Annotation
This 82-nucleotide RNA sequence from Caenorhabditis remanei belongs to the Rfam family "SmY spliceosomal RNA". The sequence is in the family's curated seed alignment.
[Rfam]
RNA sequence: GUGUAUUUUAUAUUGCCAUCAAGGCCUUACUUAAGACCUGAAGUACAAUUUUUGGAGACCCUGUCCUUUAUUGGGCAGGGUG
Numbered sequence: 001g002u003g004u005a006u007u008u009u010a011u012a013u014u015g016c017c018a019u020c021a022a023g024g025c026c027u028u029a030c031u032u033a034a035g036a037c038c039u040g041a042a043g044u045a046c047a048a049u050u051u052u053u054g055g056a057g058a059c060c061c062u063g064u065c066c067u068u069u070a071u072u073g074g075g076c077a078g079g080g081u082g
Stems, first nucleotide, its partner, number of pairs: 022039003026035003058081009
Source information:
NCBI's taxonomy places the organism under Eukaryota, Ecdysozoa, Rhabditoidea, Rhabditidae, Caenorhabditis.